[Rfam]
Notes:
Shown here is a 132-nucleotide RNA from Myotis lucifugus, a member of the family "U11 spliceosomal RNA". Rfam classes the family as a spliceosomal small nuclear RNA. A reference for the family is Schneider et al. (2004), "Identification of an evolutionarily divergent U11 small nuclear ribonucleoprotein particle in Drosophila", Proc Natl Acad Sci U S A.
RNA sequence: AAAAGGGGGUGCUGUCAUGAGCAGCACACGUUAGGCAGCUUGAUUGCUCUACAUGUGGAACUGACAUCAAGAUUUUGGAAGCAUAAUGUGCUGGUAUAUGGGCAGCUGGUGACCGUUGGUUCUGACCCACAA
Numbered sequence: 001a002a003a004a005g006g007g008g009g010u011g012c013u014g015u016c017a018u019g020a021g022c023a024g025c026a027c028a029c030g031u032u033a034g035g036c037a038g039c040u041u042g043a044u045u046g047c048u049c050u051a052c053a054u055g056u057g058g059a060a061c062u063g064a065c066a067u068c069a070a071g072a073u074u075u076u077g078g079a080a081g082c083a084u085a086a087u088g089u090g091c092u093g094g095u096a097u098a099u100g101g102g103c104a105g106c107u108g109g110u111g112a113c114c115g116u117u118g119g120u121u122c123u124g125a126c127c128c129a130c131a132a
Stems, first nucleotide, its partner, number of pairs: 008082001010080001012078001013026003027055002030052002034048005056077005100130001102128001105126001107124003111121004